[Rfam]
RNA: L2-Alphaproteobacteria ribosomal protein leader
RNA sequence: GGUCACCUGCACAAAUGCAGGGGGCUUUACUUUCCAGGGGAUGAUGCCGGGUAAACUCGGUGCAUCACCUGAGCUAAACGGAAGACAGAAA
Numbered sequence: 001g002g003u004c005a006c007c008u009g010c011a012c013a014a015a016u017g018c019a020g021g022g023g024g025c026u027u028u029a030c031u032u033u034c035c036a037g038g039g040g041a042u043g044a045u046g047c048c049g050g051g052u053a054a055a056c057u058c059g060g061u062g063c064a065u066c067a068c069c070u071g072a073g074c075u076a077a078a079c080g081g082a083a084g085a086c087a088g089a090a091a
Base pairs, nucleotide, nucleotide: 001026002025003024004023006022007021008020039070040069042067043066046061047060048059049058050057051056